[Rfam]
Shown here is a 58-nucleotide sequence from Neptunicella marina, a member of the family "Pseudomonas sRNA P26". By type it is a non-coding RNA gene. The organism belongs to Neptunicella, within Bacteria. From the family's description: This small RNA (sRNA) was computationally identified in the genome of the opportunistic pathogen Pseudomonas aeruginosa and its expression verified by northern blot analysis. P26 is conserved across many Gammaproteobacteria species and appears to be consistently located between the DNA directed RNA polymerase (beta subunit) and 50S ribosomal protein L7/L12 genes.

RNA sequence: UAUUGACAGAUUGUUUGCCUGAACAGGCAUAGGCUGGUGACUUUUUGGUCACCAGCCU
Number, nucleotide and partner (000 for none) at each position: 001u000002a000003u000004u000005g000006a000007c000008a000009g000010a000011u000012u000013g000014u000015u000016u029017g028018c027019c026020u000021g000022a000023a000024c000025a000026g019027g018028c017029a016030u000031a000032g057033g056034c055035u054036g053037g052038u051039g050040a049041c048042u000043u000044u000045u000046u000047g000048g041049u040050c039051a038052c037053c036054a035055g034056c033057c032058u000